[Rfam]
RNA sequence: UUUCCCAUUUGACUACCACAUUAUCUCCUGAUAGAUUUUAGUGGCUAUGCUUGUGGGAUAGAUAAGAACUGCCGUGAUCUGAAGAGGGGGGAUUUGCUCGUGUCCUCCUCCUAUAUGAAAUGGCUGAACAGAGCAUU
Numbered sequence: 001u002u003u004c005c006c007a008u009u010u011g012a013c014u015a016c017c018a019c020a021u022u023a024u025c026u027c028c029u030g031a032u033a034g035a036u037u038u039u040a041g042u043g044g045c046u047a048u049g050c051u052u053g054u055g056g057g058a059u060a061g062a063u064a065a066g067a068a069c070u071g072c073c074g075u076g077a078u079c080u081g082a083a084g085a086g087g088g089g090g091g092a093u094u095u096g097c098u099c100g101u102g103u104c105c106u107c108c109u110c111c112u113a114u115a116u117g118a119a120a121u122g123g124c125u126g127a128a129c130a131g132a133g134c135a136u137u
Base pairs, nucleotide, nucleotide: 004057005056006055007054016044017043018042019041071124072123073122074121089112090111091110092109

This 137-nucleotide RNA sequence from Bos taurus belongs to the Rfam family "Small nucleolar RNA SNORA29". Clan: SNORA20 clan. The sequence is in the family's curated seed alignment. Rfam classes the family as an H/ACA-box small nucleolar RNA. About the family: ACA29 is a member of the H/ACA class of snoRNA that guide the sites of modification of uridines to pseudouridines. The family has 26 seed sequences and 960 matches in Rfam 15.1.